This 84-nucleotide sequence from Scleropages formosus belongs to the Rfam family "mir-455 microRNA precursor family".
RNA sequence: CCCUGCUGUGGGGGUAUGUGCCCUUGAACUACACUGUGGAAGGCAGCACACUGCAGUCCAUGGGCAUGUACACUUGCUUCAAGG
Numbered sequence: 001c002c003c004u005g006c007u008g009u010g011g012g013g014g015u016a017u018g019u020g021c022c023c024u025u026g027a028a029c030u031a032c033a034c035u036g037u038g039g040a041a042g043g044c045a046g047c048a049c050a051c052u053g054c055a056g057u058c059c060a061u062g063g064g065c066a067u068g069u070a071c072a073c074u075u076g077c078u079u080c081a082a083g084g
Stems, first nucleotide, its partner, number of pairs: 015070009025060002028057003032053002036049003
The source organism's lineage runs through Eukaryota, Metazoa, Gnathostomata, Osteoglossocephala and Scleropages. It scores 88 bits against the family's covariance model. The family's consensus secondary structure was predicted with RNAalifold.